RNA: SAM (S-adenosyl methionine) riboswitch aptamer
RNA sequence: GGUCAUGAGUCCCGACGCCAAGCCCCGGCUCGUCGGGCGGCAACCCUCCCCUGUGGCGGGGUGCCCCGGGUGACGACCAGGCGCACGUCUUCGCGUGCGCAAGCACAGCCC
Numbered sequence: 001g002g003u004c005a006u007g008a009g010u011c012c013c014g015a016c017g018c019c020a021a022g023c024c025c026c027g028g029c030u031c032g033u034c035g036g037g038c039g040g041c042a043a044c045c046c047u048c049c050c051c052u053g054u055g056g057c058g059g060g061g062u063g064c065c066c067c068g069g070g071u072g073a074c075g076a077c078c079a080g081g082c083g084c085a086c087g088u089c090u091u092c093g094c095g096u097g098c099g100c101a102a103g104c105a106c107a108g109c110c111c
Base pairs, nucleotide, nucleotide: 001078002077003076004075009038011037012036013035014034015033016032021030022029039065040064041063044061045060046059048056049055081100082099083098084097085096086095087094088093